[Rfam]
Rfam assigns this 64-nucleotide sequence from Acipenser ruthenus to the family "Small nucleolar RNA SNORD75". Gene Ontology terms of the family: RNA processing and nucleolus. Pairs were carried over by alignment from the consensus structure, which was predicted with RNAalifold. The literature on the family includes a 2002 paper in Mol Cell Biol by Galardi et al., "Purified box C/D snoRNPs are able to reproduce site-specific 2'-O-methylation of target RNA in vitro". It is annotated as a C/D-box small nucleolar RNA.
Nucleotides: 064
Base pairs, nucleotide, nucleotide: 001064002063003062004061
Number, partner (000 for none) and nucleotide at each position: 001064a002063g003062c004061c005000u006000a007000u008000g009000a010000u011000g012000a013000g014000u015000u016000u017000u018000a019000a020000a021000g022000a023000g024000u025000a026000g027000u028000g029000g030000u031000c032000a033000g034000a035000a036000g037000u038000g039000a040000u041000u042000u043000c044000u045000g046000a047000a048000a049000u050000c051000u052000u053000a054000a055000u056000a057000c058000u059000g060000a061004g062003g063002c064001u